[Rfam]
RNA sequence: ACAUGCCUGGCUCCCUGUAUGCCAUCUGCAUUGUUCCAUCUAUAAUUAAUGGCCUUUUCAUAUGGCGUGCUAGGAGCCAUGCAUGC
Numbered sequence: 001a002c003a004u005g006c007c008u009g010g011c012u013c014c015c016u017g018u019a020u021g022c023c024a025u026c027u028g029c030a031u032u033g034u035u036c037c038a039u040c041u042a043u044a045a046u047u048a049a050u051g052g053c054c055u056u057u058u059c060a061u062a063u064g065g066c067g068u069g070c071u072a073g074g075a076g077c078c079a080u081g082c083a084u085g086c
Stems, first nucleotide, its partner, number of pairs: 002085005008079007017070008027060002
RNA: mir-160 microRNA precursor family
Organism: Anisodus acutangulus